[Rfam]
Nucleotides: 064
Stems, first nucleotide, its partner, number of pairs: 001064022024041002028037003
Number, partner (000 for none) and nucleotide at each position: 001064g002063g003062c004061c005060u006059c007058c008057c009056u010055c011054u012053g013052u014051g015050g016049g017048g018047c019046c020045a021044u022043c023000a024041a025040u026000u027000a028037c029036a030035g031000g032000g033000a034000u035030c036029u037028g038000c039000c040025a041024u042000c043022g044021a045020u046019g047018g048017c049016u050015c051014c052013a053012c054011a055010g056009a057008g058007g059006g060005a061004g062003g063002c064001c

Description
The family of this 64-nucleotide RNA sequence from Myotis brandtii is "mir-9242 microRNA precursor family". Its family is annotated with RISC complex and miRNA-mediated post-transcriptional gene silencing in the Gene Ontology. The family has 2 seed sequences and 940 matches in Rfam 15.1. The source organism's lineage runs through Eukaryota, Chordata, Vertebrata, Gnathostomata and Myotis.